Burkholderia sRNA Bp1_Cand684_SIPHT: a 105-nucleotide sequence from Paraburkholderia steynii. It scores 44 bits against the family's covariance model. Pairs were carried over by alignment from the consensus structure, which was predicted with RNAalifold. A reference for the family is Khoo et al. (2012), "Computational discovery and RT-PCR validation of novel Burkholderia conserved and Burkholderia pseudomallei unique sRNAs", BMC Genomics. It is annotated as a small RNA. Lineage of the source: Bacteria > Pseudomonadati > Betaproteobacteria > Burkholderiaceae > Paraburkholderia.
RNA sequence: AGAAAAGUAGGUGCCGCCCCGCACAGGGGCGACGCUUGAAGCGCGAAGGCAUAGCGCGGAUGCCAGCGAAAACCAAACCAAACCAGACCGCCCGCGCAGCCCCCU
Number, nucleotide and partner (000 for none) at each position: 001a000002g000003a000004a000005a000006a000007g000008u000009a000010g000011g073012u072013g000014c000015c031016g030017c029018c028019c027020c026021g000022c000023a000024c000025a000026g020027g019028g018029g017030c016031g015032a000033c000034g000035c000036u000037u000038g000039a000040a000041g000042c000043g000044c000045g000046a000047a000048g000049g000050c000051a000052u000053a000054g000055c000056g000057c000058g064059g063060a000061u000062g000063c059064c058065a000066g000067c000068g000069a000070a000071a000072a012073c011074c000075a000076a000077a000078c000079c000080a000081a000082a000083c000084c000085a000086g000087a000088c000089c000090g097091c096092c000093c000094g000095c000096g091097c090098a000099g000100c000101c000102c000103c000104c000105u000